[Rfam]
Annotation:
Microsporidia small subunit ribosomal RNA: a 513-nucleotide part of an RNA from Enterocytozoon bieneusi. Rfam's curators put it in the seed alignment.
RNA sequence: UGACGGAAGGACACUACCAGGAGUGGAUUGUGCUGCUUAAUUUAACUCAACGCGGGAAAACUUACCAGGGUCAAGUCAUUCGUUGAUCGAAUACGUGAGAAUGGCAGGAGUGGUGCAUGGCCGUUGGAAAUUGAUGGGGCGACCUUUAGCUUAAAUGCUUAAACCAGUGAGACCUCCUUGACAGGUGUUCUGUAACACAGGAGGGUGGAGGCUAUAACAGGUCCGUGAUGCCCUUAGAUAUCCUGGGCAGCAAGCGCAAUACAAUAUCUCUUCAGUAGACAAAGUGAUUUGAGAUGAGUAGGAUCUACGUUUGUAAAUACGUAGUGAAUAAGGAAUUCCUAGUAACGGUGCCUCAUCAAGGCAUGGUGAAUGUGUCCCUGUUCUUUGUACACACCGCCCGUCACUAUUUCAGAUGGUCAUAGGGAUGAAGAGCUUCGGCUCUGAAUAUCUAUGGCUAGAUAAAGUACAAGUCGUAACAAGGUUUCAGUUGGAGAACCAGCUGAAGGAUCAUUU
Numbered sequence: 001u002g003a004c005g006g007a008a009g010g011a012c013a014c015u016a017c018c019a020g021g022a023g024u025g026g027a028u029u030g031u032g033c034u035g036c037u038u039a040a041u042u043u044a045a046c047u048c049a050a051c052g053c054g055g056g057a058a059a060a061c062u063u064a065c066c067a068g069g070g071u072c073a074a075g076u077c078a079u080u081c082g083u084u085g086a087u088c089g090a091a092u093a094c095g096u097g098a099g100a101a102u103g104g105c106a107g108g109a110g111u112g113g114u115g116c117a118u119g120g121c122c123g124u125u126g127g128a129a130a131u132u133g134a135u136g137g138g139g140c141g142a143c144c145u146u147u148a149g150c151u152u153a154a155a156u157g158c159u160u161a162a163a164c165c166a167g168u169g170a171g172a173c174c175u176c177c178u179u180g181a182c183a184g185g186u187g188u189u190c191u192g193u194a195a196c197a198c199a200g201g202a203g204g205g206u207g208g209a210g211g212c213u214a215u216a217a218c219a220g221g222u223c224c225g226u227g228a229u230g231c232c233c234u235u236a237g238a239u240a241u242c243c244u245g246g247g248c249a250g251c252a253a254g255c256g257c258a259a260u261a262c263a264a265u266a267u268c269u270c271u272u273c274a275g276u277a278g279a280c281a282a283a284g285u286g287a288u289u290u291g292a293g294a295u296g297a298g299u300a301g302g303a304u305c306u307a308c309g310u311u312u313g314u315a316a317a318u319a320c321g322u323a324g325u326g327a328a329u330a331a332g333g334a335a336u337u338c339c340u341a342g343u344a345a346c347g348g349u350g351c352c353u354c355a356u357c358a359a360g361g362c363a364u365g366g367u368g369a370a371u372g373u374g375u376c377c378c379u380g381u382u383c384u385u386u387g388u389a390c391a392c393a394c395c396g397c398c399c400g401u402c403a404c405u406a407u408u409u410c411a412g413a414u415g416g417u418c419a420u421a422g423g424g425a426u427g428a429a430g431a432g433c434u435u436c437g438g439c440u441c442u443g444a445a446u447a448u449c450u451a452u453g454g455c456u457a458g459a460u461a462a463a464g465u466a467c468a469a470g471u472c473g474u475a476a477c478a479a480g481g482u483u484u485c486a487g488u489u490g491g492a493g494a495a496c497c498a499g500c501u502g503a504a505g506g507a508u509c510a511u512u513u
Stems, first nucleotide, its partner, number of pairs: 001391002003388003007385007016375002020339005025262001027260008035251002041056003065246007075105006088095002109234002112232004118228001119226001120222003123218004130168004135163001136145003148159003174210004182201001185198005266295005300329001305324006345367002348364005396477001399473002402470001405466005411460001414457010425446002429442005482505010

A reference for the family is Cannone et al. (2002), "The comparative RNA web (CRW) site: an online database of comparative sequence and structure information for ribosomal, intron, and other RNAs", BMC Bioinformatics. The family is grouped with related families in Rfam's "SSU clan". Gene Ontology terms of the family: structural constituent of ribosome and ribosome.